Rfam assigns this 48-nucleotide RNA from Alginatibacterium sediminis to the family "Guanidine-II riboswitch aptamer (mini-ykkC)". Simpler in structure and has fewer highly conserved nucleotide positions than the ykkC-yxkD leader. Despite this each of its two stem-loop structures directly bind free guanidine. Therefore, mini-ykkC RNA motif represents a distinct class of guanidine-sensing RNAs. Its crystal structure was also determined. Lineage of the source: Bacteria > Pseudomonadota > Alteromonadales > Alteromonadaceae > Alginatibacterium. The match comes from Rfam's covariance-model search (40 bits).
[Rfam]
RNA sequence: AAGUAGGGACGACCUUACCGCUCGUAACCAUUAACGAGGACGGCCUCG
Numbered sequence: 001a002a003g004u005a006g007g008g009a010c011g012a013c014c015u016u017a018c019c020g021c022u023c024g025u026a027a028c029c030a031u032u033a034a035c036g037a038g039g040a041c042g043g044c045c046u047c048g
Stems, first nucleotide, its partner, number of pairs: 003018006035048005